Notes:
The family of this 78-nucleotide sequence from Acipenser ruthenus is "mir-92 microRNA precursor family". A search with the family's covariance model found it, with a score of 80 bits. The literature on the family includes a 2002 paper in Genes Dev by Mourelatos et al., "miRNPs: a novel class of ribonucleoproteins containing numerous microRNAs". The family's consensus secondary structure was predicted with PFOLD. Gene Ontology terms of the family: miRNA-mediated post-transcriptional gene silencing and RISC complex. Rfam 15.1 lists 1,347 matches to the family in 653 species. This family represents the microRNA precursor mir-92. Human miR-92 has two predicted hairpin precursor sequences: mir-92-1 on chromosome 13 and mir-92-2 on chromosome X. miR-92 has also been cloned from mouse embryonic stem cells. The mature sequence is excised from the 3' arm of the hairpin.

RNA sequence: CUUUCUGUGCAGGUUGGGAUCGGUUGCAAUGCUGUUUGCUUGUGAGGUAUUGCACUUGUCCCGGCCUGUUGAGGACUG
Numbered sequence: 001c002u003u004u005c006u007g008u009g010c011a012g013g014u015u016g017g018g019a020u021c022g023g024u025u026g027c028a029a030u031g032c033u034g035u036u037u038g039c040u041u042g043u044g045a046g047g048u049a050u051u052g053c054a055c056u057u058g059u060c061c062c063g064g065c066c067u068g069u070u071g072a073g074g075a076c077u078g
Base pairs, nucleotide, nucleotide: 004074005073006072009069010068011067012066013065014064016062017061018060019059020058022056023055024054026053027052028051029050030049031048032047033046